Rfam assigns this 71-nucleotide RNA sequence from Oryzias javanicus to the family "tRNA". The family's RNA type in Rfam is transfer RNA. Pairs were carried over by alignment from the consensus structure, which is taken from published work.
RNA sequence: GGCGCUGUGGCUUAGCGGUUAAAGCGCCUGUCAGUAAAACAGGAGAUCCUGGUCCAAAUCCAGCAGUGCCU
Numbered sequence: 001g002g003c004g005c006u007g008u009g010g011c012u013u014a015g016c017g018g019u020u021a022a023a024g025c026g027c028c029u030g031u032c033a034g035u036a037a038a039a040c041a042g043g044a045g046a047u048c049c050u051g052g053u054c055c056a057a058a059u060c061c062a063g064c065a066g067u068g069c070c071u
Stems, first nucleotide, its partner, number of pairs: 001070007010025004027043005049063004